[Rfam]
RNA sequence: CUGCAAGGAUGAGACCCCUGAACUCUCUCUUUCCGACGGCCGAGUGGGGAAACGCUCCAUGGGAAGCUGAGCGGC
Dot-bracket structure: ((((..................................................................)))).